[Rfam]
RNA sequence: AAAAAAAUACCCGCAGAGAUAGUUUCUGCGGGCUGCCUCAUGACAAAGGAACGUGGGAAAGACGAAGGGACUUUCCCUGUUCUUAUGUCUAGGCUAUGGGAGAGGAGAAACCGGAGGAAGAACUUAUGGGGAAACGUAAGCCUUCUCCGCGG
Numbered sequence: 001a002a003a004a005a006a007a008u009a010c011c012c013g014c015a016g017a018g019a020u021a022g023u024u025u026c027u028g029c030g031g032g033c034u035g036c037c038u039c040a041u042g043a044c045a046a047a048g049g050a051a052c053g054u055g056g057g058a059a060a061g062a063c064g065a066a067g068g069g070a071c072u073u074u075c076c077c078u079g080u081u082c083u084u085a086u087g088u089c090u091a092g093g094c095u096a097u098g099g100g101a102g103a104g105g106a107g108a109a110a111c112c113g114g115a116g117g118a119a120g121a122a123c124u125u126a127u128g129g130g131g132a133a134a135c136g137u138a139a140g141c142c143u144u145c146u147c148c149g150c151g152g
Stems, first nucleotide, its partner, number of pairs: 011031009037100005042089004112149004117145004123140004
RNA: ylbH leader
Organism: Evansella caseinilytica